[Rfam]
RNA sequence: UGUGCAAGUGACGAUGAAACAGACAGGGACAUCAGAAAUCCUAUAGUGGAGUAUGAUGAUUUGUCUAUGGGAAUCUCUCCGAUGCAUA
Numbered sequence: 001u002g003u004g005c006a007a008g009u010g011a012c013g014a015u016g017a018a019a020c021a022g023a024c025a026g027g028g029a030c031a032u033c034a035g036a037a038a039u040c041c042u043a044u045a046g047u048g049g050a051g052u053a054u055g056a057u058g059a060u061u062u063g064u065c066u067a068u069g070g071g072a073a074u075c076u077c078u079c080c081g082a083u084g085c086a087u088a
Stems, first nucleotide, its partner, number of pairs: 002087005

This 88-nucleotide RNA from Actinidia chinensis belongs to the Rfam family "Small nucleolar RNA R44/J54/Z268 family". The source organism's lineage runs through Eukaryota, Tracheophyta, Magnoliopsida, eudicotyledons and Actinidia chinensis. It is annotated as a C/D-box small nucleolar RNA. The family has 29 seed sequences and 1,168 matches in Rfam 15.1. The base pairs follow the family's consensus structure, which was predicted with PFOLD.